[Rfam]
RNA sequence: UGACGCUAACCCGUAGAUCCGAACUUGUGUUUAACUGGCUGCACAAGCUCGUAUCUAUAGGUGGGCGUCGC
Numbered sequence: 001u002g003a004c005g006c007u008a009a010c011c012c013g014u015a016g017a018u019c020c021g022a023a024c025u026u027g028u029g030u031u032u033a034a035c036u037g038g039c040u041g042c043a044c045a046a047g048c049u050c051g052u053a054u055c056u057a058u059a060g061g062u063g064g065g066c067g068u069c070g071c
Stems, first nucleotide, its partner, number of pairs: 002069006010061002015056004020051003024047006
Overview
The record is a 71-nucleotide RNA from Gouania willdenowi, which matches "mir-10 microRNA precursor family" in Rfam. For this family Rfam cites "microRNAs: tiny regulators with great potential" (Ambros, Cell, 2001). Gene Ontology terms of the family: miRNA-mediated post-transcriptional gene silencing and RISC complex. The match comes from Rfam's covariance-model search (70 bits).